[Rfam]
Nucleotides: 054
Base pairs, nucleotide, nucleotide: 001054002053003052007050008049010047011046013045014044015042016041017040019038020037022035023034024033025032026031
Number, partner (000 for none) and nucleotide at each position: 001054a002053a003052a004000g005000u006000g007050g008049c009000a010047u011046a012000u013045g014044c015042a016041a017040c018000u019038g020037c021000c022035a023034u024033g025032g026031a027000c028000u029000g030000g031026u032025u033024u034023a035022u036000u037020g038019c039000u040017g041016u042015u043000u044014g045013u046011u047010a048000u049008g050007c051000a052003u053002u054001u
This 54-nucleotide sequence from Carlito syrichta belongs to the Rfam family "Editing element of GABA-3 exon 9". The sequence is in the family's curated seed alignment. The family's consensus secondary structure is taken from published work. A reference for the family is Ohlson et al. (2007), "Editing modifies the GABA(A) receptor subunit alpha3", RNA.